[Rfam]
Shown here is a 193-nucleotide sequence from Clostridium argentinense, a member of the family "glmS glucosamine-6-phosphate activated ribozyme aptamer". Taxonomically the source falls in Clostridium argentinense (Bacteria, Bacillati, Eubacteriales, Clostridiaceae).
RNA sequence: UAAAUUUUUAAAGCGCCAGAACUUAUAGAGUUUUUAUAAGUAAAGCCUUCAAGAAAGCUUUAUUAGAGUGUCUAUAAGUUGACGAGGAUGGGGAGUAUCGAAUCUUCGGCGGGUGCCCCACGGUAUCGCACUACCGUUAACGAUUGACAAAAGCAGAGAGUAAUUUCUGUUACAAAUCAAUCUGGUGUUAAAA
Numbered sequence: 001u002a003a004a005u006u007u008u009u010a011a012a013g014c015g016c017c018a019g020a021a022c023u024u025a026u027a028g029a030g031u032u033u034u035u036a037u038a039a040g041u042a043a044a045g046c047c048u049u050c051a052a053g054a055a056a057g058c059u060u061u062a063u064u065a066g067a068g069u070g071u072c073u074a075u076a077a078g079u080u081g082a083c084g085a086g087g088a089u090g091g092g093g094a095g096u097a098u099c100g101a102a103u104c105u106u107c108g109g110c111g112g113g114u115g116c117c118c119c120a121c122g123g124u125a126u127c128g129c130a131c132u133a134c135c136g137u138u139a140a141c142g143a144u145u146g147a148c149a150a151a152a153g154c155a156g157a158g159a160g161u162a163a164u165u166u167c168u169g170u171u172a173c174a175a176a177u178c179a180a181u182c183u184g185g186u187g188u189u190a191a192a193a
Stems, first nucleotide, its partner, number of pairs: 020080008029071001089120005098109004121136005142182005153170007
Rfam classes the family as a riboswitch. The base pairs follow the family's consensus structure, which is taken from published work. Gene Ontology terms of the family: catalytic activity and regulation of gene expression. It scores 114 bits against the family's covariance model.